[Rfam]
RNA sequence: AUGUUUUGGUUUUUGUUAAUAAAUAAAAAAAAAAAAAAAAAGUUCACCCAGGGUGAGGCCUAACCAUUGCACUGAAGGUUUGGUUGACCUCUGCGAAUUCCCCAAAUGUGGGAAUCUCGACUGCAUAAUUUCUGGUAGUGGGGGACUGCGUUCGCGCUCUCCCCUU
Dot-bracket structure: (.(((((...............................)))))).....((((.(.(((..((((...........))))..)))..))))).((((((.((.......)).))).)))....................((((((..(((....)))..)))))).
Numbered sequence: 001a002u003g004u005u006u007u008g009g010u011u012u013u014u015g016u017u018a019a020u021a022a023a024u025a026a027a028a029a030a031a032a033a034a035a036a037a038a039a040a041a042g043u044u045c046a047c048c049c050a051g052g053g054u055g056a057g058g059c060c061u062a063a064c065c066a067u068u069g070c071a072c073u074g075a076a077g078g079u080u081u082g083g084u085u086g087a088c089c090u091c092u093g094c095g096a097a098u099u100c101c102c103c104a105a106a107u108g109u110g111g112g113a114a115u116c117u118c119g120a121c122u123g124c125a126u127a128a129u130u131u132c133u134g135g136u137a138g139u140g141g142g143g144g145a146c147u148g149c150g151u152u153c154g155c156g157c158u159c160u161c162c163c164c165u166u
Stems, first nucleotide, its partner, number of pairs: 001044001003043005050092004055088001057085003062080004094119003097115003101111002140165006148157003